Rfam assigns this 86-nucleotide sequence to the family "GA-cis RNA".
[Rfam]
RNA sequence: GAGCGGAGGGCGCAUAUGAACGUAGUUCAUAUUUAGGAUGCGCCCGACAAUCUGCCGCCGAGCCAUGCGAGGGGGCAAUACUCGUG
Numbered sequence: 001g002a003g004c005g006g007a008g009g010g011c012g013c014a015u016a017u018g019a020a021c022g023u024a025g026u027u028c029a030u031a032u033u034u035a036g037g038a039u040g041c042g043c044c045c046g047a048c049a050a051u052c053u054g055c056c057g058c059c060g061a062g063c064c065a066u067g068c069g070a071g072g073g074g075g076c077a078a079u080a081c082u083c084g085u086g
Stems, first nucleotide, its partner, number of pairs: 008045006015031006054076003058072002062068002
The base pairs follow the family's consensus structure, which is taken from published work.
Rfam's curators put it in the seed alignment.